The record is a 168-nucleotide sequence from Ophiophagus hannah, which matches "Small Cajal body specific RNA 1" in Rfam. By type it is a small Cajal body RNA. The base pairs follow the family's consensus structure, which was predicted with RNAalifold. From the family's description: scaRNAs are a specific class of small nuclear RNAs which localise to the Cajal bodies and guide the modification of RNA polymerase II transcribed spliceosomal RNAs U1, U2, U4, U5 and U12. ACA35 belong to the H/ACA box class of guide RNAs as it has the predicted hairpin-hinge-hairpin-tail structure, conserved H/ACA-box motifs and is found associated with GAR1. It is predicted to guide pseudouridylation of the U2 spliceosomal snRNA at residue U89. The source organism's lineage runs through Eukaryota, Bilateria, Deuterostomia, Tetrapoda and Ophiophagus. For this family Rfam cites "Cajal body-specific small nuclear RNAs: a novel class of 2'-O-methylation and pseudouridylation guide RNAs" (Darzacq et al., EMBO J, 2002).

[Rfam]
RNA sequence: AAGCACUUGAUACUAACCAAGCCAUCUGUGCCUUAGUUCUCAUUUAGAGUUCAAAGGUGAAACUAGUGAUUGGCUGGGUCUAAAAAGUGCAACAUCAAAAUUAAGCCAUGAAGUGAUUAAGCUCCAUGUGUGGAGAAUCACGUCGGGUUAUAACUCAGAGGCACAAAU
Numbered sequence: 001a002a003g004c005a006c007u008u009g010a011u012a013c014u015a016a017c018c019a020a021g022c023c024a025u026c027u028g029u030g031c032c033u034u035a036g037u038u039c040u041c042a043u044u045u046a047g048a049g050u051u052c053a054a055a056g057g058u059g060a061a062a063c064u065a066g067u068g069a070u071u072g073g074c075u076g077g078g079u080c081u082a083a084a085a086a087g088u089g090c091a092a093c094a095u096c097a098a099a100a101u102u103a104a105g106c107c108a109u110g111a112a113g114u115g116a117u118u119a120a121g122c123u124c125c126a127u128g129u130g131u132g133g134a135g136a137a138u139c140a141c142g143u144c145g146g147g148u149u150a151u152a153a154c155u156c157a158g159a160g161g162c163a164c165a166a167a168u
Stems, first nucleotide, its partner, number of pairs: 003090006016079003020075004024070003027061001029059004033054001035051006105162003127140002131136001143158001145156004